[Rfam]
Source information: This 84-nucleotide RNA sequence from Burkholderia singularis belongs to the Rfam family "Burkholderia sRNA 54". A search with the family's covariance model found it, with a score of 57 bits.
RNA sequence: CGGCUUCUCAGGUUCUGGCAGAGUGGCCCUCGGAUAAACGCCGGAACCUUUUUAGGCCGACCGUCUACGGUCGGCCUCUUUCUA
Number, nucleotide and partner (000 for none) at each position: 001c000002g000003g000004c000005u000006u000007c000008u000009c000010a049011g048012g047013u046014u045015c044016u043017g042018g041019c040020a000021g000022a000023g000024u000025g000026g000027c033028c032029c000030u000031c000032g028033g027034a000035u000036a000037a000038a000039c000040g019041c018042c017043g016044g015045a014046a013047c012048c011049u010050u000051u000052u000053u000054a077055g076056g075057c074058c073059g072060a071061c070062c069063g068064u000065c000066u000067a000068c063069g062070g061071u060072c059073g058074g057075c056076c055077u054078c000079u000080u000081u000082c000083u000084a000

Rfam describes the family as follows. Identified by RNA-seq, RACE and Northern blot. Strongly expressed in biofilm. For this family Rfam cites "Identification of small RNAs abundant in Burkholderia cenocepacia biofilms reveal putative regulators with a potential role in carbon and iron metabolism" (Sass et al., Sci Rep, 2017).